[Rfam]
A member of the RNA family "Small nucleolar RNA SNORA79" from Acanthosepion pharaonis, 152 nucleotides long. Gene Ontology terms of the family: RNA processing and nucleolus. The base pairs follow the family's consensus structure, which was predicted with RNAalifold. The organism belongs to Acanthosepion, within Eukaryota. Rfam's curators write: ACA65 (SNORA79) is a member of the H/ACA class of snoRNAs that guide the sites of modification of uridines to pseudouridines. This snoRNA was identified by computational screening and its expression in mouse experimentally verified by Northern blot and primer extension analysis.
RNA sequence: UGAUGGCGUUCCCCGCACCUUCAAAGACUUGAAGGCUGUGGUUUUAGUCCAUCAAAAAUAAAAACUGGACUUCUUCACCCUUGAGCAUUUAGGCCCUGACCAUGGUGGUUAUUGGGCUCUCAGUGCUUAAGGUUUUGCAGGUUCAAAUAUUU
Numbered sequence: 001u002g003a004u005g006g007c008g009u010u011c012c013c014c015g016c017a018c019c020u021u022c023a024a025a026g027a028c029u030u031g032a033a034g035g036c037u038g039u040g041g042u043u044u045u046a047g048u049c050c051a052u053c054a055a056a057a058a059u060a061a062a063a064a065c066u067g068g069a070c071u072u073c074u075u076c077a078c079c080c081u082u083g084a085g086c087a088u089u090u091a092g093g094c095c096c097u098g099a100c101c102a103u104g105g106u107g108g109u110u111a112u113u114g115g116g117c118u119c120u121c122a123g124u125g126c127u128u129a130a131g132g133u134u135u136u137g138c139a140g141g142u143u144c145a146a147a148u149a150u151u152u
Base pairs, nucleotide, nucleotide: 001054002053003052004051005050006049007047013041014040015039016038017037018035019034020033021032067144068143069142070141071140072139079132080131081130082129083128084127085126086125087124088122092118093117094116095115096114